[Rfam]
RNA: c-di-GMP-I riboswitch aptamer
Organism: Paenibacillus endophyticus
RNA sequence: AUUUCAUACGGGCAAAUCCAUCGAAAGAUGGUGGCGCAAAGCUAUAGGGACUACUUCUUAAAAAGAAAUGUCAGCCAGUUGCGAAG
Numbered sequence: 001a002u003u004u005c006a007u008a009c010g011g012g013c014a015a016a017u018c019c020a021u022c023g024a025a026a027g028a029u030g031g032u033g034g035c036g037c038a039a040a041g042c043u044a045u046a047g048g049g050a051c052u053a054c055u056u057c058u059u060a061a062a063a064a065g066a067a068a069u070g071u072c073a074g075c076c077a078g079u080u081g082c083g084a085a086g
Stems, first nucleotide, its partner, number of pairs: 012037002018031005040080004047076002049072003056066004